RNA sequence: UGCAAGUAUUUUACGAUUAAGAAGCAAUUGUCUCUUGUACAGAUCAUUUAUGAAUCU
Numbered sequence: 001u002g003c004a005a006g007u008a009u010u011u012u013a014c015g016a017u018u019a020a021g022a023a024g025c026a027a028u029u030g031u032c033u034c035u036u037g038u039a040c041a042g043a044u045c046a047u048u049u050a051u052g053a054a055u056c057u
Stems, first nucleotide, its partner, number of pairs: 018037005024031002
Shown here is a 57-nucleotide RNA from Helianthus maximiliani, a member of the family "Plastid-rps18 3UTR RNA". Plastid rps18 is a non-coding RNA (ncRNA) present in plastids. It was identified as a short stem-loop motif in the 3 prime untranslate region (3UTR) of rps18 gene. The family's RNA type in Rfam is cis-regulatory element.